[Rfam]
The record is a 45-nucleotide RNA from Corythaeola cristata, which matches "Guanidine-II riboswitch aptamer (mini-ykkC)" in Rfam.
The base pairs follow the family's consensus structure, which is taken from published work.
Rfam describes the family as follows. Simpler in structure and has fewer highly conserved nucleotide positions than the ykkC-yxkD leader. Despite this each of its two stem-loop structures directly bind free guanidine.
Gene Ontology term of the family: regulation of gene expression.
RNA sequence: CUUAUGGGACGACCCAUAAGCACUUCUUUCAUCGGGGACGGCCCC
Numbered sequence: 001c002u003u004a005u006g007g008g009a010c011g012a013c014c015c016a017u018a019a020g021c022a023c024u025u026c027u028u029u030c031a032u033c034g035g036g037g038a039c040g041g042c043c044c045c
Stems, first nucleotide, its partner, number of pairs: 001020008034045004